[Rfam]
RNA sequence: UGGCGAUGAAGCAGUGGACUGGUUCGGUCACAGCCGAUUGCGGAGCCAAACCAUGGGUUGAGCGAAAACCACAAGCCGAAUAGAUUCCCGGAAUCGAAAGAAAACGCUAUAA
Numbered sequence: 001u002g003g004c005g006a007u008g009a010a011g012c013a014g015u016g017g018a019c020u021g022g023u024u025c026g027g028u029c030a031c032a033g034c035c036g037a038u039u040g041c042g043g044a045g046c047c048a049a050a051c052c053a054u055g056g057g058u059u060g061a062g063c064g065a066a067a068a069c070c071a072c073a074a075g076c077c078g079a080a081u082a083g084a085u086u087c088c089c090g091g092a093a094u095c096g097a098a099a100g101a102a103a104a105c106g107c108u109a110u111a112a
Stems, first nucleotide, its partner, number of pairs: 001048004011041005017035001019033003024079004062107003083095004
This 112-nucleotide RNA sequence belongs to the Rfam family "drum RNA".
Rfam's curators put it in the seed alignment.
Firmicutes, Bacteroidetes (1 example), Proteobacteria (2 examples), Spirochaetes (2 examples).